[Rfam]
RNA: mir-16 microRNA precursor family
Organism: Chloebia gouldiae
RNA sequence: GCCACGCUGAAGCAGCACAAUAAUAUUGGGGUUGAAGGUUUCUUUGACACUCCAAUAUUUACGUGCUGCUAGGGCGGGAC
Numbered sequence: 001g002c003c004a005c006g007c008u009g010a011a012g013c014a015g016c017a018c019a020a021u022a023a024u025a026u027u028g029g030g031g032u033u034g035a036a037g038g039u040u041u042c043u044u045u046g047a048c049a050c051u052c053c054a055a056u057a058u059u060u061a062c063g064u065g066c067u068g069c070u071a072g073g074g075c076g077g078g079a080c
Stems, first nucleotide, its partner, number of pairs: 001080001003078001005076003011070008020060001022059008